[Rfam]
RNA sequence: GGCAGUAAAGUAUAUGAGCGGAUGCGGUGACACCCUUGUGAAAGGGGGUGAAGCCAUUGACGACUUAUCAGGUACUGACAUUAAUGAUUAGUUUCGCUAUGUUGGUGCUCAUGAUUGUGUCGUUUAAAAACAAAAAAUAAUCCGUCUCAUAUGCUCUGCAGAAGCUGAGAUGGAUUAUUCCUUCAAGCACUGCAUCCGCUCUUAUCGCGGAUAUUGCCCUCACCGUCAGUGUUCCCGCACUGGCG
Numbered sequence: 001g002g003c004a005g006u007a008a009a010g011u012a013u014a015u016g017a018g019c020g021g022a023u024g025c026g027g028u029g030a031c032a033c034c035c036u037u038g039u040g041a042a043a044g045g046g047g048g049u050g051a052a053g054c055c056a057u058u059g060a061c062g063a064c065u066u067a068u069c070a071g072g073u074a075c076u077g078a079c080a081u082u083a084a085u086g087a088u089u090a091g092u093u094u095c096g097c098u099a100u101g102u103u104g105g106u107g108c109u110c111a112u113g114a115u116u117g118u119g120u121c122g123u124u125u126a127a128a129a130a131c132a133a134a135a136a137a138u139a140a141u142c143c144g145u146c147u148c149a150u151a152u153g154c155u156c157u158g159c160a161g162a163a164g165c166u167g168a169g170a171u172g173g174a175u176u177a178u179u180c181c182u183u184c185a186a187g188c189a190c191u192g193c194a195u196c197c198g199c200u201c202u203u204a205u206c207g208c209g210g211a212u213a214u215u216g217c218c219c220u221c222a223c224c225g226u227c228a229g230u231g232u233u234c235c236c237g238c239a240c241u242g243g244c245g
Base pairs, nucleotide, nucleotide: 001218002217003216004215005214007212008195010193011153012152013151014150015149016148017147018146021142022141023140028051030049033046034045035044036043059121060120061119062118064117073086074085097113162183163182164181196210197209198208199207224245225244226243227242228241229240230239231238232237
The family of this 245-nucleotide sequence from Sporolactobacillus laevolacticus is "BsrG". It is annotated as a small RNA. bsrE, bsrG and bsrH pair through intermolecular interactions with antisense sRNAs. They form type I toxin/antitoxin system that includes an mRNA encoding for a short, toxic peptide (bsrE, bsrG and bsrH) and an antitoxin that is comprised of an antisense RNA. bsrG encodes a 39-amino-acid toxin, and the 180 nucleotide antisense sRNA called SR4 acts as the antitoxin (they overlap by 123 nucleotides). SR4 interaction with the 3'UTR of bsrG RNA promotes bsrG degradation and inhibits its translation. BsrG interferes with cell envelope biosynthesis, causes membrane invaginations and delocalisation of the cell wall synthesis and initiates autolysis. bsrE RNA encodes 30 amino-acid toxin peptide. Lineage of the source: Bacteria > Bacillati > Caryophanales > Sporolactobacillaceae > Sporolactobacillus laevolacticus. Pairs were carried over by alignment from the consensus structure, which was predicted with WAR. The family has 6 seed sequences and 614 matches in Rfam 15.1. Its family is annotated with autolysis and toxin activity in the Gene Ontology. For this family Rfam cites "Novel small RNA-encoding genes in the intergenic regions of Bacillus subtilis" (Saito et al., Gene, 2008).